[Rfam]
RNA sequence: AAAAGUGAUUCUUAUUCCAGUGCAUUUGUUUUUGCUCAAAUGGGUCUGACGCUGCCACAUACAUUAUAUAGGAGUUGGUGAAGGCUUGAAGACAGAGCAGUCUCUCUUGAGCUUUUUCUGCACCAGAGAUUGGCUCCCACAUGU
Numbered sequence: 001a002a003a004a005g006u007g008a009u010u011c012u013u014a015u016u017c018c019a020g021u022g023c024a025u026u027u028g029u030u031u032u033u034g035c036u037c038a039a040a041u042g043g044g045u046c047u048g049a050c051g052c053u054g055c056c057a058c059a060u061a062c063a064u065u066a067u068a069u070a071g072g073a074g075u076u077g078g079u080g081a082a083g084g085c086u087u088g089a090a091g092a093c094a095g096a097g098c099a100g101u102c103u104c105u106c107u108u109g110a111g112c113u114u115u116u117u118c119u120g121c122a123c124c125a126g127a128g129a130u131u132g133g134c135u136c137c138c139a140c141a142u143g144u
Stems, first nucleotide, its partner, number of pairs: 005058003009054001020045002023042006071137006077086003103129005
RNA: Small nucleolar RNA SNORA12
Organism: Castor canadensis